[Rfam]
RNA sequence: ACUUUCGACGAUUGCCCCUGCGGUAGUCGGCGGAACUUCCUCAUCUCUACCAGCAAUGGACUGAGAGGAGAUGACGAGUGCGGUUUUUAUCGACGUCUUUUGAUCGCACGCAUCUGCCCUCCUUGCCGCCCCCGGGCUCGACGGAGAGGAAUCAAAAACUAGUCUGCGUU
Numbered sequence: 001a002c003u004u005u006c007g008a009c010g011a012u013u014g015c016c017c018c019u020g021c022g023g024u025a026g027u028c029g030g031c032g033g034a035a036c037u038u039c040c041u042c043a044u045c046u047c048u049a050c051c052a053g054c055a056a057u058g059g060a061c062u063g064a065g066a067g068g069a070g071a072u073g074a075c076g077a078g079u080g081c082g083g084u085u086u087u088u089a090u091c092g093a094c095g096u097c098u099u100u101u102g103a104u105c106g107c108a109c110g111c112a113u114c115u116g117c118c119c120u121c122c123u124u125g126c127c128g129c130c131c132c133c134g135g136g137c138u139c140g141a142c143g144g145a146g147a148g149g150a151a152u153c154a155a156a157a158a159c160u161a162g163u164c165u166g167c168g169u170u
Stems, first nucleotide, its partner, number of pairs: 004034003009029004016020001038074002040070003044066004052057001092164003095159002098157006117149002119146004128142001130140001
The family of this 170-nucleotide part of an RNA from Monosporascus sp. MC13-8B is "Ascomycota telomerase RNA". Taxonomically the source falls in Monosporascus (Eukaryota, Fungi, Dikarya, saccharomyceta).